Notes:
This 98-nucleotide sequence from Clostridium tagluense belongs to the Rfam family "Glycine riboswitch aptamer". It scores 50 bits against the family's covariance model.

[Rfam]
RNA sequence: UGACAUACCCCUGGAGAGACUACUUAAAUGUGGCAUCAACGGAGCAACUUAGAUGAUUAUCUAAGGAAACUUUCAGAUAAAAGGACAGGGAGUAAAAA
Numbered sequence: 001u002g003a004c005a006u007a008c009c010c011c012u013g014g015a016g017a018g019a020c021u022a023c024u025u026a027a028a029u030g031u032g033g034c035a036u037c038a039a040c041g042g043a044g045c046a047a048c049u050u051a052g053a054u055g056a057u058u059a060u061c062u063a064a065g066g067a068a069a070c071u072u073u074c075a076g077a078u079a080a081a082a083g084g085a086c087a088g089g090g091a092g093u094a095a096a097a098a
Base pairs, nucleotide, nucleotide: 009090010089011088012087013086020033021032022031023030035078036077037076039073042072043071044070048065049064050063051062052061